[Rfam]
RNA sequence: UAUCUGGGACGGCCCGGAUAAACGUCAUCUCAUUGGGGACGGCCCCA
Numbered sequence: 001u002a003u004c005u006g007g008g009a010c011g012g013c014c015c016g017g018a019u020a021a022a023c024g025u026c027a028u029c030u031c032a033u034u035g036g037g038g039a040c041g042g043c044c045c046c047a
Stems, first nucleotide, its partner, number of pairs: 001020008034047005
RNA: Guanidine-II riboswitch aptamer (mini-ykkC)
Organism: Xenorhabdus koppenhoeferi